[Rfam]
RNA: mir-181 microRNA precursor family
Organism: Scleropages formosus
RNA sequence: UGUCCCCAGGGAACAUUCAACGCUGUCGGUGAGUUUGAGCUUCUGAUGAAAGAAACCAUCGACCGUUGACUGUACCCCGAGGUUCG
Numbered sequence: 001u002g003u004c005c006c007c008a009g010g011g012a013a014c015a016u017u018c019a020a021c022g023c024u025g026u027c028g029g030u031g032a033g034u035u036u037g038a039g040c041u042u043c044u045g046a047u048g049a050a051a052g053a054a055a056c057c058a059u060c061g062a063c064c065g066u067u068g069a070c071u072g073u074a075c076c077c078c079g080a081g082g083u084u085c086g
Stems, first nucleotide, its partner, number of pairs: 001086002004082002007079001014072002017069006025063007033056004